[Rfam]
RNA: Ribosomal S15 leader
Organism: Endozoicomonas elysicola
RNA sequence: AUGGCUGGCUGUAAAUAUGCGCGGUCAUGCCGGUUUUCUGUAUUGCAUAUUAUUUGGAGAUUGAACAAUGGCUUUGACUGCUGAAAAGAAAGCUGGAAUCCUGAAGGAAUUCGCUCGCGCUGAA
Number, nucleotide and partner (000 for none) at each position: 001a000002u000003g000004g000005c000006u000007g026008g025009c024010u023011g022012u021013a000014a000015a000016u000017a000018u000019g000020c000021g012022c011023g010024g009025u008026c007027a000028u000029g000030c000031c000032g000033g000034u000035u000036u000037u000038c000039u000040g000041u000042a000043u000044u000045g000046c000047a000048u000049a000050u000051u000052a000053u000054u077055u076056g075057g074058a073059g072060a000061u000062u000063g000064a000065a000066c000067a000068a000069u000070g000071g000072c059073u058074u057075u056076g055077a054078c000079u000080g000081c000082u000083g000084a000085a000086a000087a000088g000089a000090a000091a000092g000093c000094u000095g000096g000097a000098a000099u000100c000101c000102u000103g000104a000105a000106g000107g000108a000109a000110u000111u000112c000113g000114c000115u000116c000117g000118c000119g000120c000121u000122g000123a000124a000